LOOT RNA: a 113-nucleotide RNA.
RNA sequence: AGCCUAAAUCUUAUUUCAUAAGACAUGGCACAAAAUCCACAUGCAUACUGAACCCGUCAUUCAGAUCCAUGCAUGUGGUCUAUAUCCGAAAGGGUAUGGGAGACGCAAGUCUC
Numbered sequence: 001a002g003c004c005u006a007a008a009u010c011u012u013a014u015u016u017c018a019u020a021a022g023a024c025a026u027g028g029c030a031c032a033a034a035a036u037c038c039a040c041a042u043g044c045a046u047a048c049u050g051a052a053c054c055c056g057u058c059a060u061u062c063a064g065a066u067c068c069a070u071g072c073a074u075g076u077g078g079u080c081u082a083u084a085u086c087c088g089a090a091a092g093g094g095u096a097u098g099g100g101a102g103a104c105g106c107a108a109g110u111c112u113c
Base pairs, nucleotide, nucleotide: 002029003028004027009023010022011021012020013019014018037078038077039076040075041074042073043072044071045070046069048064049063050062051061052060080099081098082097083096084095085094086093087092100113101112102111103110104109